[Rfam]
RNA sequence: UAGGCGGAUUCUGAAAAGCCUGAUAGAAAGAGUAAGAA
Numbered sequence: 001u002a003g004g005c006g007g008a009u010u011c012u013g014a015a016a017a018g019c020c021u022g023a024u025a026g027a028a029a030g031a032g033u034a035a036g037a038a
Base pairs, nucleotide, nucleotide: 002021003020004019005018010037011036012035
Overview:
The record is a 38-nucleotide RNA sequence, which matches "DUF805b RNA" in Rfam. Rfam's curators put it in the seed alignment. The family's consensus secondary structure is taken from published work.